[Rfam]
The family of this 173-nucleotide RNA sequence from Litchfieldia salsa is "glmS glucosamine-6-phosphate activated ribozyme aptamer". Rfam classes the family as a riboswitch. The organism belongs to Litchfieldia, within Bacteria. This entry contains a glucosamine-6-phosphate activated ribozyme that is found in the mRNA for GlmS. GlmS is an enzyme that uses fructose-6-phosphate and glutamine to generate glucosamine-6-phosphate. It scores 122 bits against the family's covariance model.
RNA sequence: GAGUUUUAAAAAGCGCCUGAACUAGGUUGGACGAUCGAAAGUCAUCCUAGUUGACGAGGAGGAGGGUUAUCGAAUGUUCGGCGGAUACCUCCCGGUUGAAACAAUCACGACCGUAAAUUCUUCUUUAAAAACAAGGAGGCAACUCCCUGUACAAAGAGAGGGAUAUGAUUAAU
Numbered sequence: 001g002a003g004u005u006u007u008a009a010a011a012a013g014c015g016c017c018u019g020a021a022c023u024a025g026g027u028u029g030g031a032c033g034a035u036c037g038a039a040a041g042u043c044a045u046c047c048u049a050g051u052u053g054a055c056g057a058g059g060a061g062g063a064g065g066g067u068u069a070u071c072g073a074a075u076g077u078u079c080g081g082c083g084g085a086u087a088c089c090u091c092c093c094g095g096u097u098g099a100a101a102c103a104a105u106c107a108c109g110a111c112c113g114u115a116a117a118u119u120c121u122u123c124u125u126u127a128a129a130a131a132c133a134a135g136g137a138g139g140c141a142a143c144u145c146c147c148u149g150u151a152c153a154a155a156g157a158g159a160g161g162g163a164u165a166u167g168a169u170u171a172a173u
Stems, first nucleotide, its partner, number of pairs: 020052007029043001061092005070081004093113006118163007132149002135146004